[Rfam]
RNA: Bacterial RNase P class A
Organism: Corticimicrobacter populi
RNA sequence: AGGGCAGGCCGGGCAAUCGCGGUAGGUAUCAGUCUAUCGAGGAAGGUCUGGACUCCAAUGGGCAGGAUAGCGGCUAACAGCCGUCCGGCGAACCCUUCUUCGGGAGGGCCGAGCCGAGGAACAGGGCCACAGAGACGAGUCUGCCGGAAGGGCGCGUGCGCACAGGUACGGCCACUCCGUACUUCGGCUGCUUUCGGGCAGCCGGUCCGGCAGGGUGAAACGCGGUAACCUCUAUCUGGAGCAACACCAAAUAGGCAUGCAUCCUGGCAACAGGGCGGACGGCCCGUCCGGCAUGCGGGUAGGUGGCUAGAGCGCGGCGGCAACGUUGCGCCAAGAUGAAUGAUUGCCAGCCGGGCGACCGGCUUACAGAAUCCGGCCUACAGGCCUGCCCUGCAU
Numbered sequence: 001a002g003g004g005c006a007g008g009c010c011g012g013g014c015a016a017u018c019g020c021g022g023u024a025g026g027u028a029u030c031a032g033u034c035u036a037u038c039g040a041g042g043a044a045g046g047u048c049u050g051g052a053c054u055c056c057a058a059u060g061g062g063c064a065g066g067a068u069a070g071c072g073g074c075u076a077a078c079a080g081c082c083g084u085c086c087g088g089c090g091a092a093c094c095c096u097u098c099u100u101c102g103g104g105a106g107g108g109c110c111g112a113g114c115c116g117a118g119g120a121a122c123a124g125g126g127c128c129a130c131a132g133a134g135a136c137g138a139g140u141c142u143g144c145c146g147g148a149a150g151g152g153c154g155c156g157u158g159c160g161c162a163c164a165g166g167u168a169c170g171g172c173c174a175c176u177c178c179g180u181a182c183u184u185c186g187g188c189u190g191c192u193u194u195c196g197g198g199c200a201g202c203c204g205g206u207c208c209g210g211c212a213g214g215g216u217g218a219a220a221c222g223c224g225g226u227a228a229c230c231u232c233u234a235u236c237u238g239g240a241g242c243a244a245c246a247c248c249a250a251a252u253a254g255g256c257a258u259g260c261a262u263c264c265u266g267g268c269a270a271c272a273g274g275g276c277g278g279a280c281g282g283c284c285c286g287u288c289c290g291g292c293a294u295g296c297g298g299g300u301a302g303g304u305g306g307c308u309a310g311a312g313c314g315c316g317g318c319g320g321c322a323a324c325g326u327u328g329c330g331c332c333a334a335g336a337u338g339a340a341u342g343a344u345u346g347c348c349a350g351c352c353g354g355g356c357g358a359c360c361g362g363c364u365u366a367c368a369g370a371a372u373c374c375g376g377c378c379u380a381c382a383g384g385c386c387u388g389c390c391c392u393g394c395a396u
Base pairs, nucleotide, nucleotide: 001392002391003390004389005388006387007386008385009384010383011381012348013347014346015345016344017343018342020039021038022037023036024035025034026033027032044379045378046377048376049375050374051373052372053241054240055239056238060285061284062283063282065237066236067235068234069233070084071083072082073081074080085118086116087115088114089113119232120231124230125229126226127225128224141214142213143211144210145209146208147207148206151203152202153201245305246304247303248302255296256295257294258293259292260291276290277289278288279287280286312331313330314329315328316327317326318325319324